[Rfam]
RNA sequence: UGGUCUAGUUCUGUGUGGAAGACUAGUGAUUUUGUUGUUUGUAGAUAACUAAAUCGACAACAAAUCGCAGUCUGCCAUAUGGCACAGACCA
Numbered sequence: 001u002g003g004u005c006u007a008g009u010u011c012u013g014u015g016u017g018g019a020a021g022a023c024u025a026g027u028g029a030u031u032u033u034g035u036u037g038u039u040u041g042u043a044g045a046u047a048a049c050u051a052a053a054u055c056g057a058c059a060a061c062a063a064a065u066c067g068c069a070g071u072c073u074g075c076c077a078u079a080u081g082g083c084a085c086a087g088a089c090c091a
Stems, first nucleotide, its partner, number of pairs: 002090005008085002011082008020073005026068007034061006
A member of the RNA family "mir-7 microRNA precursor family" from Ornithorhynchus anatinus, 91 nucleotides long.
The sequence is in the family's curated seed alignment.
Its family is annotated with RISC complex and miRNA-mediated post-transcriptional gene silencing in the Gene Ontology.
The base pairs follow the family's consensus structure, which was predicted with PFOLD.
A reference for the family is Ambros (2001), "microRNAs: tiny regulators with great potential", Cell.